[Rfam]
RNA sequence: GUCAGUAACCCAGUGCCUUUAGGACUGGGCUUGCAAGAGUAAUCAAGCGAGCCGUACUGACCAGACCACCCACAAGCGUAAGUCGUUCGCGAAGCGUCCCGUAGGGUAGGGUAGGGUAGCCGUUAUUUGAGUCACGACACCUGGGAAUGCGUAGCUAGUUCCCCGCUCUGUCGCUUGUGAUUAAACAGUUCUAAGGUCACUGGAACAGUGUUACAAGCCUAACAAGCUCUUAUAACUGGUCGAAGCUAACAUUAC
Numbered sequence: 001g002u003c004a005g006u007a008a009c010c011c012a013g014u015g016c017c018u019u020u021a022g023g024a025c026u027g028g029g030c031u032u033g034c035a036a037g038a039g040u041a042a043u044c045a046a047g048c049g050a051g052c053c054g055u056a057c058u059g060a061c062c063a064g065a066c067c068a069c070c071c072a073c074a075a076g077c078g079u080a081a082g083u084c085g086u087u088c089g090c091g092a093a094g095c096g097u098c099c100c101g102u103a104g105g106g107u108a109g110g111g112u113a114g115g116g117u118a119g120c121c122g123u124u125a126u127u128u129g130a131g132u133c134a135c136g137a138c139a140c141c142u143g144g145g146a147a148u149g150c151g152u153a154g155c156u157a158g159u160u161c162c163c164c165g166c167u168c169u170g171u172c173g174c175u176u177g178u179g180a181u182u183a184a185a186c187a188g189u190u191c192u193a194a195g196g197u198c199a200c201u202g203g204a205a206c207a208g209u210g211u212u213a214c215a216a217g218c219c220u221a222a223c224a225a226g227c228u229c230u231u232a233u234a235a236c237u238g239g240u241c242g243a244a245g246c247u248a249a250c251a252u253u254a255c
Stems, first nucleotide, its partner, number of pairs: 001061007010029002012026002016023002030047004064241005069119001122236005129229004137171002141165001143163006152248005173218009185209002188206006
HNH endonuclease-associated RNA and ORF (HEARO) RNA: a 255-nucleotide sequence from Cuspidothrix issatschenkoi. Pairs were carried over by alignment from the consensus structure, which is taken from published work. The family's RNA type in Rfam is non-coding RNA gene. The literature on the family includes a 2009 paper in Nature by Weinberg et al., "Exceptional structured noncoding RNAs revealed by bacterial metagenome analysis". It scores 138 bits against the family's covariance model.